[Rfam]
RNA sequence: CCAAAGGCUCUUUUAAGAGCCACCCAUUUAAACUAUAAAAGAGCUG
Numbered sequence: 001c002c003a004a005a006g007g008c009u010c011u012u013u014u015a016a017g018a019g020c021c022a023c024c025c026a027u028u029u030a031a032a033c034u035a036u037a038a039a040a041g042a043g044c045u046g
Stems, first nucleotide, its partner, number of pairs: 006021006
RNA: Histone 3' UTR stem-loop
Organism: Antrostomus carolinensis